RNA sequence: GCACUGGUCUAGCUCAGUGGUUACUUCCUCAAAUCUAUCAGAUUACGAUGUUCUCUCCUCCCUGGGAUCAAAGCUCGGGCGGUCCAGUGUUUUC
Number, nucleotide and partner (000 for none) at each position: 001g000002c089003a088004c087005u086006g085007g084008u000009c000010u000011a000012g080013c079014u078015c077016a000017g076018u000019g074020g000021u000022u000023a000024c000025u072026u071027c000028c000029u000030c000031a000032a000033a000034u000035c000036u000037a000038u000039c000040a000041g000042a000043u000044u000045a000046c000047g000048a000049u000050g000051u000052u000053c000054u000055c000056u000057c000058c000059u000060c000061c000062c000063u000064g000065g000066g000067a000068u000069c000070a000071a026072a025073g000074c019075u000076c017077g015078g014079g013080c012081g000082g000083u000084c007085c006086a005087g004088u003089g002090u000091u000092u000093u000094c000
This 94-nucleotide sequence from Liparis tanakae belongs to the Rfam family "Vault RNA".
This family of RNAs are found as part of the enigmatic vault ribonucleoprotein complex.
Rfam 15.1 lists 2,873 matches to the family in 431 species.
The family's consensus secondary structure is taken from published work.